[Rfam]
RNA sequence: AUUCAUCUUCGGGGACGGUGAAAUUCCGUACCGGCGGUUAAAGCCCGCGACCUGUCAUUGUAAUUUGAUGAUGGCUGAUCUGGUGAAAUUCCAGAGCCGACAGUAAAGUCUGGAUGGGAGAAGAUGGAG
Numbered sequence: 001a002u003u004c005a006u007c008u009u010c011g012g013g014g015a016c017g018g019u020g021a022a023a024u025u026c027c028g029u030a031c032c033g034g035c036g037g038u039u040a041a042a043g044c045c046c047g048c049g050a051c052c053u054g055u056c057a058u059u060g061u062a063a064u065u066u067g068a069u070g071a072u073g074g075c076u077g078a079u080c081u082g083g084u085g086a087a088a089u090u091c092c093a094g095a096g097c098c099g100a101c102a103g104u105a106a107a108g109u110c111u112g113g114a115u116g117g118g119a120g121a122a123g124a125u126g127g128a129g
Stems, first nucleotide, its partner, number of pairs: 003127008016028003030109002032099002034048004043097002052074002079095005101112003
Shown here is a 129-nucleotide RNA from Macrococcus lamae, a member of the family "FMN riboswitch aptamer (RFN element)".
It scores 119 bits against the family's covariance model.
Taxonomically the source falls in Macrococcus (Bacteria, Bacillati, Bacillota, Bacilli).
Rfam's curators write: The RFN element is a highly conserved domain that is found frequently in the 5'-untranslated regions of prokaryotic mRNAs that encode for flavin mononucleotide (FMN) biosynthesis and transport proteins. This element is a metabolite-dependent riboswitch that directly binds FMN in the absence of proteins. In Bacillus subtilis, the riboswitch most likely controls gene expression by causing premature transcription termination within the 5' untranslated region of the ribDEAHT operon and precluding access to the ribosome-binding site of ypaA mRNA.The FMN riboswitch structure, reported in present an FMN-bound six-stem junction, adopts a butterfly-like scaffold, stapled together by opposingly directed but nearly identically folded peripheral domains.
The base pairs follow the family's consensus structure, which is taken from published work.